This 81-nucleotide RNA from Trogon melanurus belongs to the Rfam family "mir-1781 microRNA precursor family". The family's consensus secondary structure was predicted with RNAalifold. It scores 74 bits against the family's covariance model.
[Rfam]
RNA sequence: CAAGGAGCUUGCUUAACAGCUGAAUGAUUUAAAUAAAAUUUCUUUAGCUUUAAAUCAUGCAGCUGUUGAACAAGCGCUUGC
Numbered sequence: 001c002a003a004g005g006a007g008c009u010u011g012c013u014u015a016a017c018a019g020c021u022g023a024a025u026g027a028u029u030u031a032a033a034u035a036a037a038a039u040u041u042c043u044u045u046a047g048c049u050u051u052a053a054a055u056c057a058u059g060c061a062g063c064u065g066u067u068g069a070a071c072a073a074g075c076g077c078u079u080g081c
Stems, first nucleotide, its partner, number of pairs: 003079003007075005013069010024058010